Rfam assigns this 194-nucleotide RNA sequence from Venturia effusa to the family "U2 spliceosomal RNA". Lineage of the source: Eukaryota > saccharomyceta > leotiomyceta > Dothideomycetes > Venturia. A search with the family's covariance model found it, with a score of 144 bits. About the family: U2 is a small nuclear RNA (snRNA) component of the spliceosome (involved in pre-mRNA splicing). Complementary binding between U2 snRNA (in an area lying towards the 5' end but 3' to hairpin I) and the branchpoint sequence (BPS) of the intron results the bulging out of an unpaired adenosine, on the BPS, which initiates a nucleophilic attack at the intronic 5' splice site, thus starting the first of two transesterification reactions that mediate splicing. Gene Ontology terms of the family: pre-mRNA branch point binding, U2 snRNP and mRNA branch site recognition. Its Rfam clan is "U2 clan". The family's consensus secondary structure is taken from published work. By type it is a spliceosomal small nuclear RNA.
[Rfam]
Nucleotides: 194
Base pairs, nucleotide, nucleotide: 009028010027011026014023015022016021049068050067051066052065053064054063069084071082072081073080074079114149115148116147117146118145120143121142127138128137129136130135152187153186154185155184156183157182158180160178161177162176
Number, partner (000 for none) and nucleotide at each position: 001000c002000u003000u004000c005000c006000u007000a008000g009028u010027c011026u012000u013000u014023g015022c016021c017000u018000u019000u020000u021016g022015g023014c024000u025000u026011a027010g028009a029000u030000c031000a032000a033000g034000u035000g036000u037000a038000g039000u040000a041000u042000c043000u044000g045000u046000u047000c048000u049068u050067u051066u052065c053064a054063g055000u056000u057000u058000a059000a060000u061000c062000u063054c064053u065052g066051a067050a068049a069084u070000u071082u072081c073080g074079c075000u076000a077000c078000g079074g080073c081072g082071a083000u084069a085000u086000u087000c088000u089000a090000u091000g092000a093000u094000u095000a096000u097000u098000c099000u100000u101000a102000u103000u104000u105000u106000u107000g108000a109000u110000c111000c112000g113000a114149g115148c116147u117146u118145g119000u120143u121142g122000g123000c124000c125000u126000c127138u128137c129136a130135g131000c132000u133000u134000g135130c136129u137128g138127a139000u140000g141000u142121c143120a144000c145118u146117g147116g148115g149114c150000a151000c152187c153186g154185u155184g156183u157182c158180g159000c160178u161177c162176g163000u164000a165000u166000u167000g168000c169000a170000c171000u172000a173000c174000c175000u176162c177161g178160a179000a180158c181000u182157g183156a184155c185154g186153c187152g188000a189000a190000g191000u192000c193000u194000u